The family of this 70-nucleotide RNA sequence from Luteibacter anthropi is "Makes More Granules Regulator RNA (mmgR)". The organism belongs to Luteibacter, within Bacteria. Gene Ontology terms of the family: DNA-templated transcription, termination, protein binding and response to nitrogen compound. Rfam 15.1 lists 1,791 matches to the family in 918 species. Rfam classes the family as a small RNA. About the family: SuhB later renamed mmgR (makes more granules regulator) was a putative non-coding RNA found multiple times in the Agrobacterium tumefaciens genome and related alpha-proteobacteria.
[Rfam]
RNA sequence: AGUCCCUGCCUUCCAGGCACUCGCUCCCUAAAAGGGCCUCGCGUUUGCGGGGCCCUUUUUUUGCGCUUCG
Dot-bracket structure: .......((((...))))...............(((((((((....)))))))))...............